[Rfam]
RNA sequence: GCUAUGGAGUAUGAUACCAAACGCUAGUAGCUAGUGAGUAAUCACAGCGAGAGCGCAUACGAUGAAAUAGCAA
Numbered sequence: 001g002c003u004a005u006g007g008a009g010u011a012u013g014a015u016a017c018c019a020a021a022c023g024c025u026a027g028u029a030g031c032u033a034g035u036g037a038g039u040a041a042u043c044a045c046a047g048c049g050a051g052a053g054c055g056c057a058u059a060c061g062a063u064g065a066a067a068u069a070g071c072a073a
Stems, first nucleotide, its partner, number of pairs: 001071005009060005022055003030048003034045002